[Rfam]
Record summary: Shown here is a 436-nucleotide RNA from Colwellia psychrerythraea, a member of the family "Bacterial RNase P class A". Rfam's curators put it in the seed alignment. The family's consensus secondary structure is taken from published work.
RNA sequence: CGAGUUGACCAGACAAUCGCUGCUUUAUCGUUGUAGUUUAAAUUUCGAUUUGAACUAAACAGAUAGAGGGGAGGAAAGUCCGGGCUCCAAUGAGCAGGGUGCCAGGUAACGCCUGGGCGGCGUGAGCCGACGACAAGUGCAGCAGAGAGAAGACCGCCGAUGGCCGCUUGCGGAACAGGUAAGGCUGAAAGGGUGCGGUAAGAGCGCACCGGAUUGCUGGUAACAGUAAUUGCAGGGUAAACUCCACCUGGAGCAAGACCAAAUAGGGUUUCAUGAUUAUUAAAACGCAAGUUUUGAUAAUAUAAGCGUGGCUCGCGUGGAAACCGGGUAGGUUGCUUGAGCUAUAGAGCGAUUUAUAGCCUAGACGAAUGAUUGUCAUCUCUUUUGCUUUUAGUAAAGGAGCUACAAAACCCGGCUUAUGUGGUCAACUCAACUA
Numbered sequence: 001c002g003a004g005u006u007g008a009c010c011a012g013a014c015a016a017u018c019g020c021u022g023c024u025u026u027a028u029c030g031u032u033g034u035a036g037u038u039u040a041a042a043u044u045u046c047g048a049u050u051u052g053a054a055c056u057a058a059a060c061a062g063a064u065a066g067a068g069g070g071g072a073g074g075a076a077a078g079u080c081c082g083g084g085c086u087c088c089a090a091u092g093a094g095c096a097g098g099g100u101g102c103c104a105g106g107u108a109a110c111g112c113c114u115g116g117g118c119g120g121c122g123u124g125a126g127c128c129g130a131c132g133a134c135a136a137g138u139g140c141a142g143c144a145g146a147g148a149g150a151a152g153a154c155c156g157c158c159g160a161u162g163g164c165c166g167c168u169u170g171c172g173g174a175a176c177a178g179g180u181a182a183g184g185c186u187g188a189a190a191g192g193g194u195g196c197g198g199u200a201a202g203a204g205c206g207c208a209c210c211g212g213a214u215u216g217c218u219g220g221u222a223a224c225a226g227u228a229a230u231u232g233c234a235g236g237g238u239a240a241a242c243u244c245c246a247c248c249u250g251g252a253g254c255a256a257g258a259c260c261a262a263a264u265a266g267g268g269u270u271u272c273a274u275g276a277u278u279a280u281u282a283a284a285a286c287g288c289a290a291g292u293u294u295u296g297a298u299a300a301u302a303u304a305a306g307c308g309u310g311g312c313u314c315g316c317g318u319g320g321a322a323a324c325c326g327g328g329u330a331g332g333u334u335g336c337u338u339g340a341g342c343u344a345u346a347g348a349g350c351g352a353u354u355u356a357u358a359g360c361c362u363a364g365a366c367g368a369a370u371g372a373u374u375g376u377c378a379u380c381u382c383u384u385u386u387g388c389u390u391u392u393a394g395u396a397a398a399g400g401a402g403c404u405a406c407a408a409a410a411c412c413c414g415g416c417u418u419a420u421g422u423g424g425u426c427a428a429c430u431c432a433a434c435u436a
Stems, first nucleotide, its partner, number of pairs: 002431009011420001012377007020071002023068006076418003080415005085253004092313001095310001097249005102116005117131001118129004132244002137242002139238002154184002156180003161177002164173003192210006211233001212231008257334004267325006304318001306316003341360008